[Rfam]
RNA: Small nucleolar RNA R16
RNA sequence: AGUGGCAAGUGAUGAGGACAUUAUUUAUAUGCUAAACACUGAAUCUUAUGUGGACUAAAACUCCGCUUAUUAUCUGAUGCCACU
Dot-bracket structure: ..(((((......................................................................)))))..